This 110-nucleotide sequence from Kurthia sp. 11kri321 belongs to the Rfam family "SAM riboswitch aptamer (S box leader)".
RNA sequence: CUCUUAUAAAGAGAGGUGGAGGGAAGUGCCCUAUGAAGCCCGGCAACCAUCACAUUAUGUGAAAAGGUGCCAAUUCACGCAAGGACUGUAUGGUCUUUGAGAGAUGAGAG
Numbered sequence: 001c002u003c004u005u006a007u008a009a010a011g012a013g014a015g016g017u018g019g020a021g022g023g024a025a026g027u028g029c030c031c032u033a034u035g036a037a038g039c040c041c042g043g044c045a046a047c048c049a050u051c052a053c054a055u056u057a058u059g060u061g062a063a064a065a066g067g068u069g070c071c072a073a074u075u076c077a078c079g080c081a082a083g084g085a086c087u088g089u090a091u092g093g094u095c096u097u098u099g100a101g102a103g104a105u106g107a108g109a110g
Stems, first nucleotide, its partner, number of pairs: 001110007013041001015040003021031003026078003042071004047067002050062003075102001080099006
For this family Rfam cites "YbxF and YlxQ are bacterial homologs of L7Ae and bind K-turns but not K-loops" (Baird et al., RNA, 2012).